[Rfam]
RNA sequence: GGUUUCUGGUAAUCGCGGUUUGCCAUUAGGCAGGCUGAGGAAAGUCCAAGCUUGCACAGACUGAGAUGUCUGUAGUGAUCGUGCUUGCUGAAAAAAUAAGGCAAGGUAUCCUGAUAAGGAUAACGGCAGAUAAAAGGACUAAGGCUCUGCUAUGUCUGAGUAGUCUUGAAAGUGCCACAGUGACGAAGCAACAUUGGAAACGGUGUUGGUGGAACGCGGUAAACCCCACGAGCAGGUAACCCAAACUUUGGUAGGGGCGCUUCAUGACGGAAAUGAACAAAUCAUGGGGGCGAAUCUUAUAGAUUCGGAGAUAGAUGAUUACCACCGAUUUUGACUCCUGGGUCGAAUGACGUACGGAACGUGGCUUAUAGAG
Number, nucleotide and partner (000 for none) at each position: 001g000002g000003u000004u373005u372006c371007u000008g323009g322010u321011a320012a319013u318014c317015g000016c037017g036018g035019u034020u033021u032022g000023c000024c000025a000026u000027u000028a000029g000030g000031c000032a021033g020034g019035c018036u017037g016038a000039g000040g000041a000042a367043a366044g365045u000046c364047c363048a362049a000050g360051c236052u235053u234054g233055c232056a073057c072058a071059g070060a069061c068062u000063g000064a000065g000066a000067u000068g061069u060070c059071u058072g057073u056074a000075g000076u000077g000078a000079u231080c230081g229082u228083g227084c105085u104086u103087g102088c101089u100090g000091a000092a000093a000094a000095a000096a000097u000098a000099a000100g089101g088102c087103a086104a085105g084106g124107u122108a121109u120110c119111c118112u117113g000114a000115u000116a000117a112118g111119g110120a109121u108122a107123a000124c106125g226126g225127c000128a166129g165130a164131u163132a000133a000134a000135a000136g157137g156138a155139c154140u000141a000142a000143g151144g150145c149146u000147c000148u000149g145150c144151u143152a000153u000154g139155u138156c137157u136158g000159a000160g000161u000162a000163g131164u130165c129166u128167u000168g000169a000170a000171a000172g224173u223174g220175c219176c218177a000178c000179a000180g000181u000182g000183a000184c000185g000186a000187a000188g000189c208190a207191a206192c205193a204194u203195u202196g201197g000198a000199a000200a000201c196202g195203g194204u193205g192206u191207u190208g189209g000210u000211g000212g000213a000214a000215c000216g000217c000218g176219g175220u174221a000222a000223a173224c172225c126226c125227c083228a082229c081230g080231a079232g055233c054234a053235g052236g051237u000238a000239a000240c256241c255242c254243a000244a000245a000246c000247u000248u000249u000250g000251g000252u000253a000254g242255g241256g240257g000258c000259g000260c289261u288262u287263c286264a285265u284266g283267a000268c000269g000270g000271a000272a000273a000274u000275g000276a000277a000278c000279a000280a000281a000282u000283c266284a265285u264286g263287g262288g261289g260290g000291c307292g306293a305294a304295u303296c302297u301298u000299a000300u000301a297302g296303a295304u294305u293306c292307g291308g000309a000310g000311a000312u000313a000314g000315a000316u000317g014318a013319u012320u011321a010322c009323c008324a000325c000326c000327g000328a000329u000330u347331u346332u345333g344334a343335c342336u000337c000338c000339u000340g000341g000342g335343u334344c333345g332346a331347a330348u000349g000350a000351c000352g000353u000354a000355c000356g000357g000358a000359a000360c050361g000362u048363g047364g046365c044366u043367u042368a000369u000370a000371g006372a005373g004
A member of the RNA family "Bacterial RNase P class B" from Liquorilactobacillus capillatus, 373 nucleotides long.
Its family is annotated with ribonuclease P activity, dimeric ribonuclease P complex and tRNA processing in the Gene Ontology.
Taxonomically the source falls in Liquorilactobacillus capillatus (Bacteria, Bacillota, Lactobacillales, Liquorilactobacillus).
Rfam's curators write: Ribonuclease P (RNase P) is a ubiquitous endoribonuclease, found in archaea, bacteria and eukarya as well as chloroplasts and mitochondria. Its best characterised activity is the generation of mature 5'-ends of tRNAs by cleaving the 5'-leader elements of precursor-tRNAs. Cellular RNase Ps are ribonucleoproteins. RNA from bacterial RNase Ps retains its catalytic activity in the absence of the protein subunit, i.e. it is a ribozyme.